[Rfam]
RNA sequence: UAAUGAAGGCGGCAUGGUUGUGUGCACGGAAAUUGAGUUUUUCAGGUCAACAUGUCUGCUCUCUCUGAUUGCGCGAUUUGAUUUGAGGGCCUGGUUGCGACCUACAUUC
Numbered sequence: 001u002a003a004u005g006a007a008g009g010c011g012g013c014a015u016g017g018u019u020g021u022g023u024g025c026a027c028g029g030a031a032a033u034u035g036a037g038u039u040u041u042u043c044a045g046g047u048c049a050a051c052a053u054g055u056c057u058g059c060u061c062u063c064u065c066u067g068a069u070u071g072c073g074c075g076a077u078u079u080g081a082u083u084u085g086a087g088g089g090c091c092u093g094g095u096u097g098c099g100a101c102c103u104a105c106a107u108u109c
Stems, first nucleotide, its partner, number of pairs: 012025004044092005054082003059075001